[Rfam]
RNA: Potassium channel RNA editing signal
RNA sequence: UUGGGCUAUGGGGAUAUGUACCCCAUGACCUGGUCUGGCAUGCUGGUUGGAGCCCUCUGUGCCCUGGCAGGGGUCCUCACCAUCGCCAUGCCCGUGCCGGUUAUCGUCAACAAC
Numbered sequence: 001u002u003g004g005g006c007u008a009u010g011g012g013g014a015u016a017u018g019u020a021c022c023c024c025a026u027g028a029c030c031u032g033g034u035c036u037g038g039c040a041u042g043c044u045g046g047u048u049g050g051a052g053c054c055c056u057c058u059g060u061g062c063c064c065u066g067g068c069a070g071g072g073g074u075c076c077u078c079a080c081c082a083u084c085g086c087c088a089u090g091c092c093c094g095u096g097c098c099g100g101u102u103a104u105c106g107u108c109a110a111c112a113a114c
Base pairs, nucleotide, nucleotide: 002113004111008107009106010105011104013102014101015100018097019096020095021094037077038076040074049063050062